The record is a 97-nucleotide RNA from Allocoprococcus comes, which matches "skipping-rope RNA" in Rfam. It is annotated as a small RNA.
[Rfam]
RNA sequence: AUUAUCUAAGGUGGAAGAUUUCGUGCGAUCCACACGCCGAUGGUAUAGACAGGGGAAACCUGAGAGAUGCAGGAGAAGCGCACGCCUGCUGGAUAAU
Numbered sequence: 001a002u003u004a005u006c007u008a009a010g011g012u013g014g015a016a017g018a019u020u021u022c023g024u025g026c027g028a029u030c031c032a033c034a035c036g037c038c039g040a041u042g043g044u045a046u047a048g049a050c051a052g053g054g055g056a057a058a059c060c061u062g063a064g065a066g067a068u069g070c071a072g073g074a075g076a077a078g079c080g081c082a083c084g085c086c087u088g089c090u091g092g093a094u095a096a097u
Stems, first nucleotide, its partner, number of pairs: 001097008011033005023083005035064001036044003069089005